This 124-nucleotide RNA sequence from Silanimonas sp. belongs to the Rfam family "Xanthomonadaceae sRNA Xoo5".
The family's consensus secondary structure was predicted with RNAalifold.
A search with the family's covariance model found it, with a score of 50 bits.
A reference for the family is Liang et al. (2011), "Identification and functional characterization of small non-coding RNAs in Xanthomonas oryzae pathovar oryzae", BMC Genomics.
NCBI's taxonomy places the organism under Bacteria, Pseudomonadati, Pseudomonadota, Lysobacteraceae, Silanimonas.

RNA sequence: GUAUGUUCACCUUCCUGCCCGCAUUCGGCGUCCUCAGCUCGGCCUACAUGGCCGCCGGGAUGACCUCUCGCGCGCGCCGACCGGAACCCCGCCUUCUCGCUGGGUAACCGGUCUGUUUCGCUUU
Numbered sequence: 001g002u003a004u005g006u007u008c009a010c011c012u013u014c015c016u017g018c019c020c021g022c023a024u025u026c027g028g029c030g031u032c033c034u035c036a037g038c039u040c041g042g043c044c045u046a047c048a049u050g051g052c053c054g055c056c057g058g059g060a061u062g063a064c065c066u067c068u069c070g071c072g073c074g075c076g077c078c079g080a081c082c083g084g085a086a087c088c089c090c091g092c093c094u095u096c097u098c099g100c101u102g103g104g105u106a107a108c109c110g111g112u113c114u115g116u117u118u119c120g121c122u123u124u
Stems, first nucleotide, its partner, number of pairs: 028121003035115003038111002041082002049079004058073001061070002083109002088104004092099001